[Rfam]
RNA sequence: GCAUGGAUGAAUUCUGCAUUGGCUUCUUCAGUAGCUAAUGCAGUCAGACACUAUGCUAGAGUAUAUUUCCUUUUCACUUAUUCCUAAUGGUAUGCUGUGUGUAAAGUUAGCAUGUCCAUACACGUAGGAUACAUGA
Dot-bracket structure: ((((((.......((((((..................)))))).......)))))).............((.(.(.........((..(((((((((..........)))))))))..))...).)))........

Rfam assigns this 136-nucleotide sequence from Chelydra serpentina to the family "Small nucleolar RNA SNORA15". About the family: ACA15 is a member of the H/ACA class of snoRNA that guide the sites of modification of uridines to pseudouridines. For this family Rfam cites "RNomics: an experimental approach that identifies 201 candidates for novel, small, non-messenger RNAs in mouse" (Huttenhofer et al., EMBO J, 2001). Pairs were carried over by alignment from the consensus structure, which was predicted with RNAfold. NCBI's taxonomy places the organism under Eukaryota, Euteleostomi, Amniota, Durocryptodira, Chelydra. The match comes from Rfam's covariance-model search (76 bits).